[Rfam]
RNA sequence: AGCGAAGGGAGAACUCGCAAUUCUCUCACAAAGCCGCCAUUAGCAGCAGAGGAUGUAGCCGGAAUACAGGUUGACCGCUCCGUAAGCCUUUGUGUAAGUCUACUUG
Numbered sequence: 001a002g003c004g005a006a007g008g009g010a011g012a013a014c015u016c017g018c019a020a021u022u023c024u025c026u027c028a029c030a031a032a033g034c035c036g037c038c039a040u041u042a043g044c045a046g047c048a049g050a051g052g053a054u055g056u057a058g059c060c061g062g063a064a065u066a067c068a069g070g071u072u073g074a075c076c077g078c079u080c081c082g083u084a085a086g087c088c089u090u091u092g093u094g095u096a097a098g099u100c101u102a103c104u105u106g
Stems, first nucleotide, its partner, number of pairs: 002078001007027007041102003044098001046093007060082004065077001069076002
This 106-nucleotide RNA sequence belongs to the Rfam family "cow-rumen-2 RNA". The family's consensus secondary structure is taken from published work. The family's RNA type in Rfam is small RNA. Rfam's curators put it in the seed alignment.